[Rfam]
RNA sequence: UUAAAGAAACUAUGUAAGGCAAAUACUACUAAAUAAAAAAUAUUAAAUUAAAAGGAGCAAUAACUUCCCUCUUGUUUUAUCAAAAGGGCGUUAUUGCUCCUUU
Numbered sequence: 001u002u003a004a005a006g007a008a009a010c011u012a013u014g015u016a017a018g019g020c021a022a023a024u025a026c027u028a029c030u031a032a033a034u035a036a037a038a039a040a041u042a043u044u045a046a047a048u049u050a051a052a053a054g055g056a057g058c059a060a061u062a063a064c065u066u067c068c069c070u071c072u073u074g075u076u077u078u079a080u081c082a083a084a085a086g087g088g089c090g091u092u093a094u095u096g097c098u099c100c101u102u103u
Base pairs, nucleotide, nucleotide: 051103052102053101054100055099056098057097058096059095060094061093062092063091066088067087069086070085072083073082
This 103-nucleotide sequence from Lactuca sativa belongs to the Rfam family "Plastid-psbA-1 3UTR RNA". Rfam classes the family as a cis-regulatory element. Plastid psbA-1 is a non-coding RNA (ncRNA) present in plastids. The organism belongs to Lactuca, within Eukaryota.